This 67-nucleotide sequence from Pipistrellus kuhlii belongs to the Rfam family "mir-9256 microRNA precursor family". Rfam links the family to the GO terms RISC complex and miRNA-mediated post-transcriptional gene silencing. The organism belongs to Pipistrellus, within Eukaryota. The family's consensus secondary structure was predicted with RNAalifold.
Nucleotides: 067
Stems, first nucleotide, its partner, number of pairs: 004064006011057007019049010
Number, partner (000 for none) and nucleotide at each position: 001000u002000u003000a004064u005063a006062c007061a008060c009059u010000u011057a012056a013055u014054g015053g016052c017051c018000a019049g020048a021047u022046u023045a024044u025043u026042a027041u028040g029000c030000a031000u032000u033000c034000a035000g036000a037000g038000a039000u040028c041027a042026u043025a044024a045023u046022a047021a048020u049019c050000u051017g052016g053015c054014c055013a056012u057011u058000c059009a060008g061007u062006g063005u064004a065000u066000a067000u